[Rfam]
The family of this 117-nucleotide sequence from Rubellimicrobium rubrum is "ALIL pseudoknot". Gene Ontology term of the family: positive regulation of translational frameshifting.

RNA sequence: CGCGCAUUUUGCGAUGGCGGAGCUCGACCGCCGGUCGAAGUGAUGGUGUCGUUCAUCGAUGCCCAUCGAGGGGCACACGGGGUCGAGCCGAUCUGCCGUCUUCUGCGGAUCGCCCCG
Numbered sequence: 001c002g003c004g005c006a007u008u009u010u011g012c013g014a015u016g017g018c019g020g021a022g023c024u025c026g027a028c029c030g031c032c033g034g035u036c037g038a039a040g041u042g043a044u045g046g047u048g049u050c051g052u053u054c055a056u057c058g059a060u061g062c063c064c065a066u067c068g069a070g071g072g073g074c075a076c077a078c079g080g081g082g083u084c085g086a087g088c089c090g091a092u093c094u095g096c097c098g099u100c101u102u103c104u105g106c107g108g109a110u111c112g113c114c115c116c117g
Stems, first nucleotide, its partner, number of pairs: 016032005078117005089112002092109005098103001

A reference for the family is Mazauric et al. (2008), "Apical loop-internal loop RNA pseudoknots: a new type of stimulator of -1 translational frameshifting in bacteria", J Biol Chem. It scores 107 bits against the family's covariance model. The base pairs follow the family's consensus structure, which is taken from published work. The family's RNA type in Rfam is cis-regulatory element.